[Rfam]
RNA sequence: AAGCUGCCCGCAUGUGUCGCUGAUCCGUCAGCAGCAUGCCAGCAGCCAGGGUUUCCAGGCUGCCGCGGAUUCUCUCCGCGCCACCCGCCAGUCCGCCAUCGCAUCGAGUCUGCGGACGCGCGUCCUCGUGACGCCGAUGC
Numbered sequence: 001a002a003g004c005u006g007c008c009c010g011c012a013u014g015u016g017u018c019g020c021u022g023a024u025c026c027g028u029c030a031g032c033a034g035c036a037u038g039c040c041a042g043c044a045g046c047c048a049g050g051g052u053u054u055c056c057a058g059g060c061u062g063c064c065g066c067g068g069a070u071u072c073u074c075u076c077c078g079c080g081c082c083a084c085c086c087g088c089c090a091g092u093c094c095g096c097c098a099u100c101g102c103a104u105c106g107a108g109u110c111u112g113c114g115g116a117c118g119c120g121c122g123u124c125c126u127c128g129u130g131a132c133g134c135c136g137a138u139g140c
Stems, first nucleotide, its partner, number of pairs: 011038004019032005042063006050084001051082001064080006112140003120134005
radC RNA: a 140-nucleotide sequence from Eoetvoesiella caeni. Rfam classes the family as a cis-regulatory element. The match comes from Rfam's covariance-model search (79 bits). The base pairs follow the family's consensus structure, which is taken from published work.